mir-4872 microRNA precursor family: a 77-nucleotide sequence from Branchiostoma lanceolatum.
The base pairs follow the family's consensus structure, which was predicted with RNAalifold.
RNA sequence: UCACAUGCGGUGCCGGGGCAAUAAAAGCUCUGAGUUUUGUUAGCUCCAGAGUUUUGUUGCCCUGGCUCUCCAUGUGA
Numbered sequence: 001u002c003a004c005a006u007g008c009g010g011u012g013c014c015g016g017g018g019c020a021a022u023a024a025a026a027g028c029u030c031u032g033a034g035u036u037u038u039g040u041u042a043g044c045u046c047c048a049g050a051g052u053u054u055u056g057u058u059g060c061c062c063u064g065g066c067u068c069u070c071c072a073u074g075u076g077a
Stems, first nucleotide, its partner, number of pairs: 001077002004074004009069002012066006019059004024055009034044002